[Rfam]
RNA sequence: UGGUAGAUGCACCCUGAUAAUUUACUUCCCUAGCUGGUAUUGUUCCAGUUGGGGAUUUUUUUU
Numbered sequence: 001u002g003g004u005a006g007a008u009g010c011a012c013c014c015u016g017a018u019a020a021u022u023u024a025c026u027u028c029c030c031u032a033g034c035u036g037g038u039a040u041u042g043u044u045c046c047a048g049u050u051g052g053g054g055a056u057u058u059u060u061u062u063u
Stems, first nucleotide, its partner, number of pairs: 002013003027055011
RNA: Nitrogen stress-induced RNA 1
Organism: Calothrix sp. NIES-4101